[Rfam]
RNA: TPP riboswitch aptamer (THI element)
RNA sequence: GCCCUUGCUCCGGGGUGCACGUGUGCGUGCUGAGACGGCGGAAUCAACCGCCGGAACCGCGAACUUGAUCUGGUUAGUACCAGCGUAAGAAGAGCUGCAGUCGACAGG
Number, nucleotide and partner (000 for none) at each position: 001g000002c000003c000004c000005u000006u000007g095008c094009u093010c092011c059012g058013g057014g000015g000016u053017g030018c029019a028020c027021g026022u000023g000024u000025g000026c021027g020028u019029g018030c017031u000032g000033a000034g000035a000036c000037g052038g051039c050040g049041g048042a000043a000044u000045c000046a000047a000048c041049c040050g039051c038052c037053g016054g000055a000056a000057c013058c012059g011060c000061g000062a000063a000064c089065u088066u087067g086068a000069u000070c083071u082072g081073g080074u000075u000076a000077g000078u000079a000080c073081c072082a071083g070084c000085g000086u067087a066088a065089g064090a000091a000092g010093a009094g008095c007096u000097g000098c000099a000100g000101u000102c000103g000104a000105c000106a000107g000108g000